[Rfam]
RNA sequence: GGCGAUAAACGGCCGGUGUAAUAAACCUUUCGGACCCGGGGGCGGUACCCGGCGCCUCCACCUGAACCCUUCGUUGGAAGGGCUGAGGCGGGGGCGAAAUAGGAUCGACGAGGGUGUAAAGAUCGUUCUUUCGCUCGGCAUGGUACCACCGUCAUCGGGCUGUAAAAAUAGUUGCCAACGACAACUAUGCGGAAGCCCGUCUCGCCGCGUAA
Numbered sequence: 001g002g003c004g005a006u007a008a009a010c011g012g013c014c015g016g017u018g019u020a021a022u023a024a025a026c027c028u029u030u031c032g033g034a035c036c037c038g039g040g041g042g043c044g045g046u047a048c049c050c051g052g053c054g055c056c057u058c059c060a061c062c063u064g065a066a067c068c069c070u071u072c073g074u075u076g077g078a079a080g081g082g083c084u085g086a087g088g089c090g091g092g093g094g095c096g097a098a099a100u101a102g103g104a105u106c107g108a109c110g111a112g113g114g115u116g117u118a119a120a121g122a123u124c125g126u127u128c129u130u131u132c133g134c135u136c137g138g139c140a141u142g143g144u145a146c147c148a149c150c151g152u153c154a155u156c157g158g159g160c161u162g163u164a165a166a167a168a169u170a171g172u173u174g175c176c177a178a179c180g181a182c183a184a185c186u187a188u189g190c191g192g193a194a195g196c197c198c199g200u201c202u203c204g205c206c207g208c209g210u211a212a
Base pairs, nucleotide, nucleotide: 001135002134003133004132005131014125015124016123017122026114027113028112030111031110032109036052037051038050039049040048053096054095055094056093057092058091059090136151137150138149
Shown here is a 212-nucleotide RNA sequence from Aureimonas jatrophae, a member of the family "permuted transfer-messenger RNA". NCBI's taxonomy places the organism under Bacteria, Alphaproteobacteria, Hyphomicrobiales, Aurantimonadaceae, Aureimonas.